[Rfam]
RNA: salivarius-1 RNA
Nucleotides: 056
Base pairs, nucleotide, nucleotide: 001054002053003052004051005050006049007048010027011026012025013023022038029041031047032046033045034044035043036042
Number, partner (000 for none) and nucleotide at each position: 001054g002053c003052c004051u005050u006049g007048c008000a009000u010027c011026c012025a013023c014000a015000u016000g017000a018000u019000u020000u021000g022038a023013g024000a025012u026011g027010g028000u029041c030000a031047c032046a033045c034044g035043u036042u037000u038022u039000g040000a041029g042036g043035g044034c045033g046032u047031g048007g049006c050005a051004a052003g053002g054001c055000u056000u